[Rfam]
RNA sequence: AAGGAUUGGCAAUCUGCCGCUAGCAGCAAGACUGCUGGAGGAAAGUCUGGGCAGCAUAGAGCAUCACGCUUCCUAACGGGAAGAUACUCGCAAGGGUAUAGUAGUGUAACAGAGAAUAACCGCCCUGCUUGCAGGGUAAGGGUGAAAAGGUGGGGUAAGAGCCCACCGGUAGCCAUGGCAACAUGGUUAGCCGUACGCCUGGUGAGCUGCAAGACCAUGUAUACCGACGCUUAGGGUUGCUCGCUCAAGUCGGGGGGUAGGUCGCUAGAGCUGACAGGUGACUGUCAGUCGAGAUAAAUGGCAGAGCCUCGCAAGAGGAACAGAACCCGGCUUAUCGCCAAUCCUUUUUU
Numbered sequence: 001a002a003g004g005a006u007u008g009g010c011a012a013u014c015u016g017c018c019g020c021u022a023g024c025a026g027c028a029a030g031a032c033u034g035c036u037g038g039a040g041g042a043a044a045g046u047c048u049g050g051g052c053a054g055c056a057u058a059g060a061g062c063a064u065c066a067c068g069c070u071u072c073c074u075a076a077c078g079g080g081a082a083g084a085u086a087c088u089c090g091c092a093a094g095g096g097u098a099u100a101g102u103a104g105u106g107u108a109a110c111a112g113a114g115a116a117u118a119a120c121c122g123c124c125c126u127g128c129u130u131g132c133a134g135g136g137u138a139a140g141g142g143u144g145a146a147a148a149g150g151u152g153g154g155g156u157a158a159g160a161g162c163c164c165a166c167c168g169g170u171a172g173c174c175a176u177g178g179c180a181a182c183a184u185g186g187u188u189a190g191c192c193g194u195a196c197g198c199c200u201g202g203u204g205a206g207c208u209g210c211a212a213g214a215c216c217a218u219g220u221a222u223a224c225c226g227a228c229g230c231u232u233a234g235g236g237u238u239g240c241u242c243g244c245u246c247a248a249g250u251c252g253g254g255g256g257g258u259a260g261g262u263c264g265c266u267a268g269a270g271c272u273g274a275c276a277g278g279u280g281a282c283u284g285u286c287a288g289u290c291g292a293g294a295u296a297a298a299u300g301g302c303a304g305a306g307c308c309u310c311g312c313a314a315g316a317g318g319a320a321c322a323g324a325a326c327c328c329g330g331c332u333u334a335u336c337g338c339c340a341a342u343c344c345u346u347u348u349u350u
Stems, first nucleotide, its partner, number of pairs: 001346010011335001013305006020038007043333003047330005052209004059242004064205004069083005084099001086097004100200002104198005120141002122137006149167006169191001170189008213263004224253005234246004270289008
Shown here is a 350-nucleotide sequence from Acetobacteroides hydrogenigenes, a member of the family "Bacterial RNase P class A". The family's consensus secondary structure is taken from published work. The family's RNA type in Rfam is ribozyme. Lineage of the source: Bacteria > Pseudomonadati > Bacteroidales > Rikenellaceae > Acetobacteroides. Gene Ontology terms of the family: dimeric ribonuclease P complex, tRNA processing and ribonuclease P activity. It scores 251 bits against the family's covariance model.